About this RNA: Shown here is a 232-nucleotide sequence from Paenibacillus rigui, a member of the family "Group II catalytic intron D1-D4-6".
Nucleotides: 232
Base pairs, nucleotide, nucleotide: 012036013035014034015033016032020030021029023201025199026198038092040090041089044087046085047084048083049081050080051076052075053074054073055072056071057070059068060067061066125226126224128223129222130221131220132219133218148217150176151175152174155170156169157168158167181212182211183210184209185208186207187206188205189204190203191202
Number, partner (000 for none) and nucleotide at each position: 001000u002000g003000a004000g005000u006000c007000c008000c009000a010000u011000c012036a013035g014034g015033a016032u017000a018000a019000a020030g021029c022000c023201u024000a025199a026198c027000c028000a029021g030020u031000a032016g033015u034014c035013c036012u037000g038092u039000a040090g041089c042000u043000a044087g045000u046085u047084c048083u049081u050080g051076g052075a053074g054073g055072c056071u057070a058000g059068u060067c061066g062000g063000c064000a065000a066061c067060g068059a069000g070057u071056a072055g073054c074053u075052u076051u077000a078000a079000g080050c081049g082000u083048a084047g085046a086000a087044c088000g089041g090040c091000a092038a093000a094000a095000u096000a097000g098000c099000g100000g101000g102000c103000c104000g105000a106000a107000a108000g109000c110000g111000a112000a113000a114000g115000c116000u117000g118000a119000a120000g121000u122000g123000a124000u125226u126224g127000a128223g129222c130221c131220u132219c133218g134000a135000a136000a137000a138000u139000c140000a141000g142000u143000c144000a145000g146000a147000c148217g149000u150176g151175c152174c153000g154000a155170u156169g157168u158167a159000g160000u161000u162000a163000c164000a165000c166000a167158u168157a169156c170155a171000g172000a173000a174152g175151g176150c177000a178000g179000a180000a181212u182211c183210c184209g185208u186207u187206c188205a189204a190203g191202c192000g193000c194000u195000a196000g197000a198026g199025u200000g201023a202191g203190u204189u205188u206187g207186a208185a209184c210183g211182g212181g213000c214000a215000c216000u217148c218133c219132g220131g221130g222129g223128u224126c225000u226125a227000a228000g229000g230000g231000c232000u

A search with the family's covariance model found it, with a score of 125 bits.
Taxonomically the source falls in Paenibacillus (Bacteria, Bacillati, Bacillota, Bacilli).